[Rfam]
Nucleotides: 200
Stems, first nucleotide, its partner, number of pairs: 003019002007015001009013001025140002029137001031135001033133002035129001037127002047122002050119001052118003070096001072094003098113001101110002150196003155192005162184003165180001167178002
Number, partner (000 for none) and nucleotide at each position: 001000a002000a003019c004018u005000u006000u007015u008000a009013u010000g011000a012000g013009g014000g015007a016000u017000c018004a019003g020000c021000a022000c023000u024000u025140u026139c027000a028000a029137u030000a031135g032000g033133g034132g035129g036000a037127a038126g039000g040000a041000g042000c043000g044000a045000g046000u047122g048121a049000g050119g051000a052118g053117a054116g055000c056000a057000c058000a059000a060000a061000a062000u063000a064000g065000c066000a067000g068000c069000a070096g071000c072094c073093u074092u075000u076000u077000a078000a079000a080000c081000u082000u083000u084000a085000a086000a087000u088000a089000g090000a091000c092074a093073g094072g095000u096070u097000g098113g099000a100000g101110a102109g103000a104000c105000u106000g107000a108000a109102c110101u111000a112000g113098c114000u115000u116054u117053u118052c119050c120000a121048u122047u123000u124000u125000c126038c127037u128000a129035c130000a131000c132034c133033c134000a135031c136000c137029g138000a139026g140025a141000g142000u143000u144000c145000u146000a147000c148000c149000a150196c151195u152194u153000g154000u155192u156191g157190g158189a159188c160000g161000g162184c163183u164182u165180u166000a167178c168177u169000c170000u171000c172000a173000a174000a175000c176000u177168a178167g179000a180165g181000a182164a183163g184162g185000u186000a187000a188159g189158u190157u191156u192155g193000a194152a195151a196150g197000u198000u199000u200000g